[Rfam]
RNA sequence: UUGGUUGACCGCCACGUAUCCGCUCACGGGCUUUGUGGUGGUCGUAAUCUACUAUAUGUAGGAGUGAAUAGUGGCCCGUAUCGCUGGCAUUAACAUUCCUGAC
Numbered sequence: 001u002u003g004g005u006u007g008a009c010c011g012c013c014a015c016g017u018a019u020c021c022g023c024u025c026a027c028g029g030g031c032u033u034u035g036u037g038g039u040g041g042u043c044g045u046a047a048u049c050u051a052c053u054a055u056a057u058g059u060a061g062g063a064g065u066g067a068a069u070a071g072u073g074g075c076c077c078g079u080a081u082c083g084c085u086g087g088c089a090u091u092a093a094c095a096u097u098c099c100u101g102a103c
Stems, first nucleotide, its partner, number of pairs: 006044008020087003027078004036101001
Shown here is a 103-nucleotide RNA sequence from Aeromonas hydrophila, a member of the family "Alpha operon ribosome binding site". It scores 76 bits against the family's covariance model. NCBI's taxonomy places the organism under Bacteria, Pseudomonadota, Aeromonadaceae, Aeromonas, Aeromonas hydrophila subsp. hydrophila. Rfam links the family to the GO term ribosome binding. For this family Rfam cites "Translational repression of the Escherichia coli alpha operon mRNA: importance of an mRNA conformational switch and a ternary entrapment complex" (Schlax et al., J Biol Chem, 2001). The family's RNA type in Rfam is cis-regulatory element. The bacterial alpha operon ribosome binding site is surrounded by this complex pseudoknotted structure. Translation of the mRNA produces 4 ribosomal protein products, one of which (S4) acts as a translational repressor by binding to the nested pseudoknot region.